[Rfam]
A member of the RNA family "antisense RNA of dnaA mRNA" from Photobacterium jeanii, 81 nucleotides long.
RNA sequence: UUUGGCAUUGGGUUUACGAUCAGCGAUGGCAUUGCCUACCGCAUGCAAUAAGUGAGUUUUACCUAAACCAGUACCACCGUA
Numbered sequence: 001u002u003u004g005g006c007a008u009u010g011g012g013u014u015u016a017c018g019a020u021c022a023g024c025g026a027u028g029g030c031a032u033u034g035c036c037u038a039c040c041g042c043a044u045g046c047a048a049u050a051a052g053u054g055a056g057u058u059u060u061a062c063c064u065a066a067a068c069c070a071g072u073a074c075c076a077c078c079g080u081a
Stems, first nucleotide, its partner, number of pairs: 005042002009038005016032001018030001020029002052077003056074002061072002
Dot-bracket structure: ....((..(((((..(.(.((......))).).)))))..)).........(((.((...((........)))))))....
Background: It scores 58 bits against the family's covariance model.